[Rfam]
RNA sequence: ACUAUUACCCUGACCUGAGCAUUGACUUGACUGUUGAAAUCAGUAAGUGCUACUUGUUGGGGUAGUUUUA
Numbered sequence: 001a002c003u004a005u006u007a008c009c010c011u012g013a014c015c016u017g018a019g020c021a022u023u024g025a026c027u028u029g030a031c032u033g034u035u036g037a038a039a040u041c042a043g044u045a046a047g048u049g050c051u052a053c054u055u056g057u058u059g060g061g062g063u064a065g066u067u068u069u070a
Stems, first nucleotide, its partner, number of pairs: 004066008013057002017053001018051006025044003

Rfam assigns this 70-nucleotide RNA from Scophthalmus maximus to the family "miR-430 microRNA precursor family". For this family Rfam cites "MicroRNAs regulate brain morphogenesis in zebrafish" (Giraldez et al., Science, 2005). The base pairs follow the family's consensus structure, which was predicted with RNAalifold. A search with the family's covariance model found it, with a score of 65 bits.